[Rfam]
RNA sequence: AGUCCCGUUUAAGUACCGUCCACUCGCAUCACCACGAAUGGACGGCUAUGCUAACGGGGCAGAAAAACACUGUCAUGAUCUGAGGGUGUGGCUAACUAACUGUGUACCUCACUAAAUGAAAUGACAGGACAUCUUAAU
Dot-bracket structure: ...((((........((((......................)))).........)))).............((((..............((....................))........)))).............
Numbered sequence: 001a002g003u004c005c006c007g008u009u010u011a012a013g014u015a016c017c018g019u020c021c022a023c024u025c026g027c028a029u030c031a032c033c034a035c036g037a038a039u040g041g042a043c044g045g046c047u048a049u050g051c052u053a054a055c056g057g058g059g060c061a062g063a064a065a066a067a068c069a070c071u072g073u074c075a076u077g078a079u080c081u082g083a084g085g086g087u088g089u090g091g092c093u094a095a096c097u098a099a100c101u102g103u104g105u106a107c108c109u110c111a112c113u114a115a116a117u118g119a120a121a122u123g124a125c126a127g128g129a130c131a132u133c134u135u136a137a138u
Stems, first nucleotide, its partner, number of pairs: 004058004016045004072125004090113002